This 347-nucleotide RNA from Pneumocystis murina belongs to the Rfam family "Group I catalytic intron". NCBI's taxonomy places the organism under Eukaryota, Ascomycota, Taphrinomycotina, Pneumocystis, Pneumocystis murina. A search with the family's covariance model found it, with a score of 118 bits. Its family is annotated with Group I intron splicing in the Gene Ontology.
RNA sequence: GUAACUAUGACUCACCUUCUGAGGGUCAUGAAAGCGGCGUGAAAACGUUAGCUAGUGAUCUGGAAUAAAUUCAGAUUGCGACACUGUCAAAUUGCGGGGAAGCCCUAAAGAUUCAACUACUAAGCAGUUUGUGGAAACACAGCUGUGGCCGAGUUAAUAGCCCUGGGUAUAGUAACAAUGUUGAAUAUGAAUCUUUUGCGAGAUGAAAUGGGUGAUCCGCAGCCAAGUCCUAAGGGCAUUUUUGUCUAUGGAUGCAGUUCAACGACUAGAUGGCAGUGGGUAUUGUAAGGAAUUGCAGUUUUCUUGCAGUGCUUAAGGUAUAGUCUAUCCUCUUUCGAAAGAAAGAG
Numbered sequence: 001g002u003a004a005c006u007a008u009g010a011c012u013c014a015c016c017u018u019c020u021g022a023g024g025g026u027c028a029u030g031a032a033a034g035c036g037g038c039g040u041g042a043a044a045a046c047g048u049u050a051g052c053u054a055g056u057g058a059u060c061u062g063g064a065a066u067a068a069a070u071u072c073a074g075a076u077u078g079c080g081a082c083a084c085u086g087u088c089a090a091a092u093u094g095c096g097g098g099g100a101a102g103c104c105c106u107a108a109a110g111a112u113u114c115a116a117c118u119a120c121u122a123a124g125c126a127g128u129u130u131g132u133g134g135a136a137a138c139a140c141a142g143c144u145g146u147g148g149c150c151g152a153g154u155u156a157a158u159a160g161c162c163c164u165g166g167g168u169a170u171a172g173u174a175a176c177a178a179u180g181u182u183g184a185a186u187a188u189g190a191a192u193c194u195u196u197u198g199c200g201a202g203a204u205g206a207a208a209u210g211g212g213u214g215a216u217c218c219g220c221a222g223c224c225a226a227g228u229c230c231u232a233a234g235g236g237c238a239u240u241u242u243u244g245u246c247u248a249u250g251g252a253u254g255c256a257g258u259u260c261a262a263c264g265a266c267u268a269g270a271u272g273g274c275a276g277u278g279g280g281u282a283u284u285g286u287a288a289g290g291a292a293u294u295g296c297a298g299u300u301u302u303c304u305u306g307c308a309g310u311g312c313u314u315a316a317g318g319u320a321u322a323g324u325c326u327a328u329c330c331u332c333u334u335u336c337g338a339a340a341g342a343a344a345g346a347g
Stems, first nucleotide, its partner, number of pairs: 006030008035047002082278005088272002093221006103212003222258002227253004235246004262326001264325005280312013332345005